[Rfam]
A member of the RNA family "Small nucleolar RNA SNORA29" from Cyprinodon variegatus, 138 nucleotides long.
Rfam's curators write: ACA29 is a member of the H/ACA class of snoRNA that guide the sites of modification of uridines to pseudouridines.
The base pairs follow the family's consensus structure, which was predicted with PFOLD.
Its family is annotated with RNA processing and nucleolus in the Gene Ontology.
It scores 59 bits against the family's covariance model.
RNA sequence: ACCCCCAUUUUAGUACCUUCCACUCACUGUUUAAUGAAUGGAGGGCUAUGCUAAUGGGGUAGAGAAACACUGUCGUGAUCUGAAGGUGUGGCUAGCUGCUUGUGCACCCCACCGAAUAAACUGACAGAACAAUUACAU
Dot-bracket structure: ...((((........((((......................)))).........)))).............((((..............((.(.................)))........)))).............